Shown here is a 63-nucleotide RNA from Podarcis muralis, a member of the family "Small nucleolar RNA SNORD98". The family has 10 seed sequences and 571 matches in Rfam 15.1. It scores 79 bits against the family's covariance model.

[Rfam]
RNA sequence: GAGUAAUGAUGUUUAAACCUAUUCCAUUACUGAAAUGCAAUGUGGAAAAAAGAAACUGAACUC
Numbered sequence: 001g002a003g004u005a006a007u008g009a010u011g012u013u014u015a016a017a018c019c020u021a022u023u024c025c026a027u028u029a030c031u032g033a034a035a036u037g038c039a040a041u042g043u044g045g046a047a048a049a050a051a052g053a054a055a056c057u058g059a060a061c062u063c
Base pairs, nucleotide, nucleotide: 001063002062003061004060
Record summary:
Lineage of the source: Eukaryota > Metazoa > Unidentata > Laterata > Podarcis.